RNA sequence: UGGUAGAUGCACCCUGAUUACUAACUCCCCUAGCUGGCUAAGACUAACUGGGGGUUUUUUCU
Numbered sequence: 001u002g003g004u005a006g007a008u009g010c011a012c013c014c015u016g017a018u019u020a021c022u023a024a025c026u027c028c029c030c031u032a033g034c035u036g037g038c039u040a041a042g043a044c045u046a047a048c049u050g051g052g053g054g055u056u057u058u059u060u061c062u
Stems, first nucleotide, its partner, number of pairs: 002013003027054007035046003